The record is an 86-nucleotide RNA sequence from Bos taurus, which matches "mir-3613 microRNA precursor family" in Rfam. Taxonomically the source falls in Bos (Eukaryota, Mammalia, Laurasiatheria, Bovinae). It is one of the family's seed sequences. Rfam links the family to the GO terms RISC complex and miRNA-mediated post-transcriptional gene silencing.
[Rfam]
Nucleotides: 086
Stems, first nucleotide, its partner, number of pairs: 006080003010076004016070004022064015038048001
Number, partner (000 for none) and nucleotide at each position: 001000g002000g003000u004000u005000g006080g007079g008078u009000u010076u011075g012074g013073a014000u015000u016070g017069u018068u019067g020000u021000a022064c023063u024062u025061u026060u027059u028058u029057u030056u031055u032054u033053g034052u035051u036050c037000g038048u039000u040000g041000c042000a043000u044000u045000u046000u047000u048038a049000g050036g051035a052034a053033c054032a055031a056030a057029a058028a059027a060026a061025a062024a063023a064022g065000c066000c067019c068018a069017a070016c071000c072000c073013u074012u075011c076010a077000c078008a079007c080006c081000g082000c083000u084000u085000c086000a